[Rfam]
RNA sequence: UUCUGGGCCCGCCUGUGGCUCAGGGCAGAAAGAG
Numbered sequence: 001u002u003c004u005g006g007g008c009c010c011g012c013c014u015g016u017g018g019c020u021c022a023g024g025g026c027a028g029a030a031a032g033a034g
Base pairs, nucleotide, nucleotide: 001025002024003023004022005021006020007019008018
Dot-bracket structure: ((((((((.........)))))))).........
Source information: L31-Firmicutes ribosomal protein leader: a 34-nucleotide RNA sequence from Paenibacillus algorifonticola. The source organism's lineage runs through Bacteria, Bacillota, Caryophanales, Paenibacillaceae and Paenibacillus. Rfam's curators put it in the seed alignment. The family is grouped with related families in Rfam's "Ribosomal Protein L31 Leader clan". The family's consensus secondary structure is taken from published work. The family's RNA type in Rfam is cis-regulatory leader. On this family, see Eckert and Weinberg, BMC Microbiol 2020: "Discovery of 20 novel ribosomal leader candidates in bacteria and archaea".